[Rfam]
RNA sequence: GUCUCCUGGGCCUGCUGUGCUGAAUAUCAGUGCUCUCAGUCUAGCUGGCUCAGUUCAGCAGGAACAGGAG
Numbered sequence: 001g002u003c004u005c006c007u008g009g010g011c012c013u014g015c016u017g018u019g020c021u022g023a024a025u026a027u028c029a030g031u032g033c034u035c036u037c038a039g040u041c042u043a044g045c046u047g048g049c050u051c052a053g054u055u056c057a058g059c060a061g062g063a064a065c066a067g068g069a070g
Base pairs, nucleotide, nucleotide: 003070004069005068006067008065011062012061013060015058016057017056019054020053021052022051023050027048028047029046030045031044
RNA: mir-24 microRNA precursor family
Organism: Lepisosteus oculatus